Source information:
The family of this 192-nucleotide RNA from Musa acuminata is "MIR159 microRNA precursor family". Gene Ontology terms of the family: RISC complex and miRNA-mediated post-transcriptional gene silencing.
[Rfam]
RNA sequence: UAGUAGAGAAGGGAGCUCCCUUCAGUCCAAGCAAAGGCAGCAUGGGAUCCGACUCACCUCCCGCAUCAUUCACUCAUGUGCCCGGCAAAGCCAUCGUCCCUUUUACCGGGCAUGUGGAUGAAUGAGUCGGCAGCUAAUCACAUCCCAUGGCCACCCAAGAGUGGACUGAAGGAAGCUCUCUUUGCAGAUCCC
Numbered sequence: 001u002a003g004u005a006g007a008g009a010a011g012g013g014a015g016c017u018c019c020c021u022u023c024a025g026u027c028c029a030a031g032c033a034a035a036g037g038c039a040g041c042a043u044g045g046g047a048u049c050c051g052a053c054u055c056a057c058c059u060c061c062c063g064c065a066u067c068a069u070u071c072a073c074u075c076a077u078g079u080g081c082c083c084g085g086c087a088a089a090g091c092c093a094u095c096g097u098c099c100c101u102u103u104u105a106c107c108g109g110g111c112a113u114g115u116g117g118a119u120g121a122a123u124g125a126g127u128c129g130g131c132a133g134c135u136a137a138u139c140a141c142a143u144c145c146c147a148u149g150g151c152c153a154c155c156c157a158a159g160a161g162u163g164g165a166c167u168g169a170a171g172g173a174a175g176c177u178c179u180c181u182u183u184g185c186a187g188a189u190c191c192c
Base pairs, nucleotide, nucleotide: 013178014177015176016175017174019172020171023168024167025166026165027164028163029162036155058133059132061130062129063128067124068123069122070121075116
Dot-bracket structure: ............(((((.((..(((((((......(.....................((.(((...((((....(........................................)....))))...))).)).....................)......)))))))..)).)))))..............